A member of the RNA family "Ma3 gene ribosomal frameshift signal" from Platysternon megacephalum, 60 nucleotides long. The family has 12 seed sequences and 565 matches in Rfam 15.1. The organism belongs to Platysternon, within Eukaryota. The literature on the family includes a 2006 paper in J Biol Chem by Wills et al., "A functional -1 ribosomal frameshift signal in the human paraneoplastic Ma3 gene". The family's RNA type in Rfam is frameshift element.
RNA sequence: GGGAAACGGCCCCAGGGCCUGGGAAGGGAGCCGCCUAGGCCUGUAGGGUGUGGAGGCUCC
Numbered sequence: 001g002g003g004a005a006a007c008g009g010c011c012c013c014a015g016g017g018c019c020u021g022g023g024a025a026g027g028g029a030g031c032c033g034c035c036u037a038g039g040c041c042u043g044u045a046g047g048g049u050g051u052g053g054a055g056g057c058u059c060c
Stems, first nucleotide, its partner, number of pairs: 014044001015042009028059005